[Rfam]
RNA sequence: CGCGUGGGACGACCCGCGCCUGAGAACCAUUCCGGGACGGCCCGG
Numbered sequence: 001c002g003c004g005u006g007g008g009a010c011g012a013c014c015c016g017c018g019c020c021u022g023a024g025a026a027c028c029a030u031u032c033c034g035g036g037a038c039g040g041c042c043c044g045g
Stems, first nucleotide, its partner, number of pairs: 002019007032045005
RNA: Guanidine-II riboswitch aptamer (mini-ykkC)